[Rfam]
RNA: mir-8799 microRNA precursor family
RNA sequence: GGGUGGAGGUCGGAUCCUGGGCUCUGUCCUGGCGCCCUGUGCUCCGGAUUCUGCACUCUUGGAUUUGCGCUCCUGACCGGGCAGCCCCCU
Numbered sequence: 001g002g003g004u005g006g007a008g009g010u011c012g013g014a015u016c017c018u019g020g021g022c023u024c025u026g027u028c029c030u031g032g033c034g035c036c037c038u039g040u041g042c043u044c045c046g047g048a049u050u051c052u053g054c055a056c057u058c059u060u061g062g063a064u065u066u067g068c069g070c071u072c073c074u075g076a077c078c079g080g081g082c083a084g085c086c087c088c089c090u
Stems, first nucleotide, its partner, number of pairs: 001090003005086002009082002011079003017075001019073003023069001025067002027063003031057002034054002039051001041050001043048001